Rfam assigns this 162-nucleotide RNA sequence from Marinomonas transparens to the family "FMN riboswitch aptamer (RFN element)". The family's consensus secondary structure is taken from published work.
RNA sequence: AUCGAACUUCGGGGCGGGGCGAAAUUCCCCACCGGCGGUAAAUUGCUUUUGCAAAAGCCCGCGAGCGCCUUUUCUUUUAACUUAGUGGUUAUGGGAGAAGGGUCAGCAGAUCUGGUGUGACUCCAGAGCCGACGGUUACAGUCCGGAUGAUAGAAGAUCGAC
Numbered sequence: 001a002u003c004g005a006a007c008u009u010c011g012g013g014g015c016g017g018g019g020c021g022a023a024a025u026u027c028c029c030c031a032c033c034g035g036c037g038g039u040a041a042a043u044u045g046c047u048u049u050u051g052c053a054a055a056a057g058c059c060c061g062c063g064a065g066c067g068c069c070u071u072u073u074c075u076u077u078u079a080a081c082u083u084a085g086u087g088g089u090u091a092u093g094g095g096a097g098a099a100g101g102g103u104c105a106g107c108a109g110a111u112c113u114g115g116u117g118u119g120a121c122u123c124c125a126g127a128g129c130c131g132a133c134g135g136u137u138a139c140a141g142u143c144c145g146g147a148u149g150a151u152a153g154a155a156g157a158u159c160g161a162c
Base pairs, nucleotide, nucleotide: 003160004159005158007156008155009154010153017029018028019027031142032141033131034130035062036061037060038059057129058128065107066106111127112126113125114124115123133145134144135143
Rfam describes the family as follows. The RFN element is a highly conserved domain that is found frequently in the 5'-untranslated regions of prokaryotic mRNAs that encode for flavin mononucleotide (FMN) biosynthesis and transport proteins.